[Rfam]
RNA sequence: CUUCAACUUUAACAUGGAGGUGCUUUCUGUGCUUUUUAAAAGAGUAAGUGCUUCCAUGUUUCAGUAGAAG
Number, nucleotide and partner (000 for none) at each position: 001c070002u069003u068004c000005a000006a065007c064008u063009u000010u000011a060012a059013c058014a057015u056016g055017g054018a053019g052020g051021u050022g049023c048024u047025u046026u000027c044028u043029g000030u000031g000032c000033u000034u000035u000036u000037u000038a000039a000040a000041a000042g000043a028044g027045u000046a025047a024048g023049u022050g021051c020052u019053u018054c017055c016056a015057u014058g013059u012060u011061u000062c000063a008064g007065u006066a000067g000068a003069a002070g001